[Rfam]
RNA: epsC RNA
RNA sequence: AGGUAAUGUCUCCUAACCUCUAUCAAUGGGGGCACUCGAUCCCGCUGUGGGUGCAGCUAAAGCUGGACACCUUAGACGCCUGUCGUCGGUGGUGGGAUGUGAGGAGGGGUUAGAUGCCCU
Numbered sequence: 001a002g003g004u005a006a007u008g009u010c011u012c013c014u015a016a017c018c019u020c021u022a023u024c025a026a027u028g029g030g031g032g033c034a035c036u037c038g039a040u041c042c043c044g045c046u047g048u049g050g051g052u053g054c055a056g057c058u059a060a061a062g063c064u065g066g067a068c069a070c071c072u073u074a075g076a077c078g079c080c081u082g083u084c085g086u087c088g089g090u091g092g093u094g095g096g097a098u099g100u101g102a103g104g105a106g107g108g109g110u111u112a113g114a115u116g117c118c119c120u
Stems, first nucleotide, its partner, number of pairs: 001019004007034007035103004039098008049072005054065003075087004106120005